[Rfam]
RNA sequence: UUCAAUGAUGACUCCAAUACCAAUAAGCAUAGUUCACCUGAGGUCUUUGUGCCUUUGAAUGAAAACUGUAUACCAUCUUUCAUCUUUGUCUGAUA
Number, nucleotide and partner (000 for none) at each position: 001u000002u000003c000004a000005a000006u019007g018008a000009u016010g015011a000012c000013u000014c000015c010016a009017a000018u007019a006020c000021c000022a000023a000024u000025a000026a000027g000028c000029a000030u000031a000032g060033u059034u058035c057036a056037c000038c000039u000040g000041a000042g053043g052044u051045c000046u000047u000048u000049g000050u000051g044052c043053c042054u000055u000056u036057g035058a034059a033060u032061g000062a000063a000064a000065a000066c000067u000068g000069u000070a000071u000072a000073c000074c000075a000076u000077c000078u000079u000080u000081c000082a000083u000084c000085u000086u000087u000088g000089u000090c000091u000092g000093a000094u000095a000